[Rfam]
RNA sequence: AAUCACAAAUUUAAGGCCAUAGCAGCAAUGCUCAUGGUAUGGCCCUAUCAGAUUCCAACAAAUCUGCAAUUUCUGCU
Numbered sequence: 001a002a003u004c005a006c007a008a009a010u011u012u013a014a015g016g017c018c019a020u021a022g023c024a025g026c027a028a029u030g031c032u033c034a035u036g037g038u039a040u041g042g043c044c045c046u047a048u049c050a051g052a053u054u055c056c057a058a059c060a061a062a063u064c065u066g067c068a069a070u071u072u073c074u075g076c077u
Stems, first nucleotide, its partner, number of pairs: 015044004021077005027071001028040003049066006
Dot-bracket structure: ..............[[[[..(((((.((((.......)))]]]]....((((((......))))))....).)))))
RNA: Mammalian CPEB3 ribozyme
Organism: Crocodylus porosus